Record summary:
This 84-nucleotide RNA sequence from Mesobacillus zeae belongs to the Rfam family "c-di-GMP-I riboswitch aptamer". Clan: c-di-GMP_I riboswitch clan. Taxonomically the source falls in Mesobacillus (Bacteria, Bacilli, Caryophanales, Bacillaceae). Gene Ontology term of the family: cyclic-di-GMP binding. It scores 77 bits against the family's covariance model.
[Rfam]
RNA sequence: UGCAGAUAAAGGCAAACCUGUCGAAAGGCAGUGACGCAAAAUCACGGGUCUAAGGGGAAAUCCUAUGACAGCCGGAUUGCCUGG
Numbered sequence: 001u002g003c004a005g006a007u008a009a010a011g012g013c014a015a016a017c018c019u020g021u022c023g024a025a026a027g028g029c030a031g032u033g034a035c036g037c038a039a040a041a042u043c044a045c046g047g048g049u050c051u052a053a054g055g056g057g058a059a060a061u062c063c064u065a066u067g068a069c070a071g072c073c074g075g076a077u078u079g080c081c082u083g084g
Stems, first nucleotide, its partner, number of pairs: 012037002018031005040078004045074003048069003055063003